The record is an 89-nucleotide RNA from Cucumis melo, which matches "Small nucleolar RNA U54" in Rfam. Taxonomically the source falls in Cucumis (Eukaryota, Streptophytina, Spermatophyta, Gunneridae). It scores 44 bits against the family's covariance model. On this family, see Chen et al., Nucleic Acids Res 2003: "The high diversity of snoRNAs in plants: identification and comparative study of 120 snoRNA genes from Oryza sativa". Pairs were carried over by alignment from the consensus structure, which was predicted with PFOLD. Rfam's curators write: U54 is a C/D box small nucleolar RNA, which acts as a methylation guide for 18S ribosomal RNA in plants.
RNA sequence: UGCUCUGUGAUUACAUGCCUUAACAGGGCAAUAUACGCUAUUCUGAAGAUGAAAGUUGUGUAGAGAUCUACUGAAAUGAAAUGAGAGCU
Numbered sequence: 001u002g003c004u005c006u007g008u009g010a011u012u013a014c015a016u017g018c019c020u021u022a023a024c025a026g027g028g029c030a031a032u033a034u035a036c037g038c039u040a041u042u043c044u045g046a047a048g049a050u051g052a053a054a055g056u057u058g059u060g061u062a063g064a065g066a067u068c069u070a071c072u073g074a075a076a077u078g079a080a081a082u083g084a085g086a087g088c089u
Stems, first nucleotide, its partner, number of pairs: 002088004